[Rfam]
RNA sequence: CUAAUAUAUUGGCAAACUACUUGAAAAGGUAGGACGCAAAACUAGAGGGGCUUAUUCGAUUACGAGAUGCCAGCCAGUUGUAUCU
Numbered sequence: 001c002u003a004a005u006a007u008a009u010u011g012g013c014a015a016a017c018u019a020c021u022u023g024a025a026a027a028g029g030u031a032g033g034a035c036g037c038a039a040a041a042c043u044a045g046a047g048g049g050g051c052u053u054a055u056u057c058g059a060u061u062a063c064g065a066g067a068u069g070c071c072a073g074c075c076a077g078u079u080g081u082a083u084c085u
Stems, first nucleotide, its partner, number of pairs: 012037002017032006040079004047075002049071003056065003
Rfam assigns this 85-nucleotide RNA from Pseudoneobacillus rhizosphaerae to the family "c-di-GMP-I riboswitch aptamer". Rfam describes the family as follows. GEMM was predicted in a large-scale screen for bacterial structured RNA regulatory elements. A search with the family's covariance model found it, with a score of 64 bits.